[Rfam]
RNA: Eukaryotic small subunit ribosomal RNA, nucleotides 2008 to 2174
Organism: Coniochaeta ligniaria
RNA sequence: UAUCAUUCGUCGCUACUAUUAAUUAAAUAGCUUAGUAAGGCUUUCGGAUUAGCUUAGAGAAGUUAGUAACGACUACUUAGGGUUAGAAAGUUAUCUAAACUCGGUUAUUUAAAGGAAAUAAAAGUCGUAAUAAAGUCUUUAUUAGUAAAUUAGCGAAGGGAUUAUUA
Numbered sequence: 001u002a003u004c005a006u007u008c009g010u011c012g013c014u015a016c017u018a019u020u021a022a023u024u025a026a027a028u029a030g031c032u033u034a035g036u037a038a039g040g041c042u043u044u045c046g047g048a049u050u051a052g053c054u055u056a057g058a059g060a061a062g063u064u065a066g067u068a069a070c071g072a073c074u075a076c077u078u079a080g081g082g083u084u085a086g087a088a089a090g091u092u093a094u095c096u097a098a099a100c101u102c103g104g105u106u107a108u109u110u111a112a113a114g115g116a117a118a119u120a121a122a123a124g125u126c127g128u129a130a131u132a133a134a135g136u137c138u139u140u141a142u143u144a145g146u147a148a149a150u151u152a153g154c155g156a157a158g159g160g161a162u163u164a165u166u167a
Stems, first nucleotide, its partner, number of pairs: 003134001005131002008127002011124001014120002017117001019115002023111001025110008034101003039096002042093001045090001049086007057078003061074004136159005142153004